The record is a 78-nucleotide RNA from Trichobilharzia regenti, which matches "mir-3492 microRNA precursor family" in Rfam. Rfam 15.1 lists 21,496 matches to the family in 13 species.
Nucleotides: 078
Stems, first nucleotide, its partner, number of pairs: 002077002005074002008071004017062001020061003024058002027055004
Number, partner (000 for none) and nucleotide at each position: 001000a002077g003076c004000c005074u006073u007000c008071u009070g010069u011068a012000u013000c014000c015000u016000u017062g018000c019000c020061g021060a022059g023000a024058u025057u026000u027055c028054g029053u030052c031000a032000g033000c034000g035000a036000c037000c038000a039000a040000c041000c042000c043000g044000u045000u046000g047000g048000c049000a050000c051000u052030g053029a054028u055027g056000c057025a058024a059022c060021u061020c062017u063000u064000u065000a066000a067000u068011u069010a070009u071008g072000u073006g074005a075000a076003g077002u078000g
It scores 44 bits against the family's covariance model. Lineage of the source: Eukaryota > Metazoa > Bilateria > Digenea > Trichobilharzia.